[Rfam]
Record summary
Rfam assigns this 46-nucleotide sequence from Nyctereutes procyonoides to the family "Histone 3' UTR stem-loop".
RNA sequence: CCAAAGGCUCUUUUCAGAGCCACCCACCGGUCUUAUCAAGAGAGCU
Numbered sequence: 001c002c003a004a005a006g007g008c009u010c011u012u013u014u015c016a017g018a019g020c021c022a023c024c025c026a027c028c029g030g031u032c033u034u035a036u037c038a039a040g041a042g043a044g045c046u
Stems, first nucleotide, its partner, number of pairs: 006021006
Background:
The base pairs follow the family's consensus structure, which is taken from published work. It is annotated as a cis-regulatory element. The mRNAs of metazoan histone genes lack a poly-A tail. 3' end processing occurs at a site between a highly conserved stem-loop (modelled by this family) and a purine rich region around 20 nts downstream (the histone downstream element, or HDE).